[Rfam]
RNA sequence: UUAACUUAUAUUUGUAUGGAAUGGGAUCGAUUGCGUACCUUUGCCGCUAGGGGCGCUGUUCCAAUUGCAUAUAAAUUUGGGUUA
Numbered sequence: 001u002u003a004a005c006u007u008a009u010a011u012u013u014g015u016a017u018g019g020a021a022u023g024g025g026a027u028c029g030a031u032u033g034c035g036u037a038c039c040u041u042u043g044c045c046g047c048u049a050g051g052g053g054c055g056c057u058g059u060u061c062c063a064a065u066u067g068c069a070u071a072u073a074a075a076u077u078u079g080g081g082u083u084a
Stems, first nucleotide, its partner, number of pairs: 008078001010076007018068001020066003024062003028058002034052001036050001040046001

Background:
A member of the RNA family "mir-2807 microRNA precursor family" from Bombyx mori, 84 nucleotides long. Its family is annotated with RISC complex and miRNA-mediated post-transcriptional gene silencing in the Gene Ontology. The source organism's lineage runs through Eukaryota, Eumetazoa, Dicondylia, Glossata and Bombyx. A reference for the family is Liu et al. (2010), "MicroRNAs of Bombyx mori identified by Solexa sequencing", BMC Genomics. The match comes from Rfam's covariance-model search (61 bits).